[Rfam]
RNA sequence: GAGUUAGUGAUGAUUAUAAAAAAAAUUUCUCGUUUUAACUUACUUAAUUAGGGCAUGAUAAAUCUCUUCUUACAUCCAUAGAAUCUUAGCUAC
Number, nucleotide and partner (000 for none) at each position: 001g000002a000003g093004u092005u000006a091007g090008u000009g000010a000011u000012g000013a000014u000015u000016a000017u000018a000019a000020a000021a000022a000023a000024a000025a000026u000027u000028u000029c000030u000031c000032g000033u000034u000035u000036u000037a000038a000039c000040u000041u000042a000043c000044u000045u000046a000047a000048u000049u000050a000051g000052g000053g000054c000055a000056u000057g000058a000059u000060a000061a000062a000063u000064c000065u000066c000067u000068u000069c000070u000071u000072a000073c000074a000075u000076c000077c000078a000079u000080a000081g000082a000083a000084u000085c000086u000087u000088a000089g000090c007091u006092a004093c003
RNA: Small nucleolar RNA snoR8a
Organism: Theobroma cacao